The record is a 197-nucleotide RNA from Anopheles stephensi, which matches "drz-agam-2-2 ribozyme" in Rfam. Pairs were carried over by alignment from the consensus structure, which is taken from published work. The source organism's lineage runs through Eukaryota, Protostomia, Ecdysozoa, Panorpida and Neocellia. It scores 115 bits against the family's covariance model. For this family Rfam cites "Widespread occurrence of self-cleaving ribozymes" (Webb et al., Science, 2009).
Nucleotides: 197
Base pairs, nucleotide, nucleotide: 011104012103013102014101015100016099017098025067026066027065028064029063030062032058033057073197074196075195076194078193079192081191086096087095089106090105110182111181112180114178116176117175119173120172125171126170127169128168133157134156135155136154137153138152159166160165
Number, partner (000 for none) and nucleotide at each position: 001000a002000u003000g004000c005000u006000g007000c008000c009000a010000u011104g012103u013102u014101c015100u016099g017098u018000u019000a020000a021000u022000g023000g024000g025067g026066u027065a028064g029063g030062a031000u032058c033057c034000g035000a036000g037000a038000c039000u040000c041000c042000u043000u044000u045000c046000g047000g048000g049000g050000u051000u052000a053000c054000a055000c056000a057033g058032g059000c060000u061000u062030u063029c064028c065027u066026a067025u068000a069000g070000a071000a072000c073197u074196c075195c076194u077000a078193u079192u080000c081191c082000g083000u084000c085000a086096c087095g088000u089106c090105c091000u092000c093000g094000u095087c096086g097000c098017a099016c100015a101014g102013a103012g104011u105090g106089g107000u108000a109000a110182c111181u112180u113000u114178c115000c116176c117175c118000a119173c120172c121000a122000c123000a124000u125171a126170u127169c128168c129000a130000a131000g132000c133157u134156u135155g136154g137153g138152a139000u140000g141000u142000c143000u144000c145000g146000g147000g148000c149000c150000u151000g152138u153137c154136u155135c156134a157133a158000c159166c160165c161000c162000u163000u164000g165160g166159g167000c168128g169127g170126a171125u172120g173119g174000a175117g176116g177000u178114g179000c180112a181111a182110g183000g184000c185000u186000u187000a188000a189000c190000a191081g192079g193078a194076g195075g196074g197073g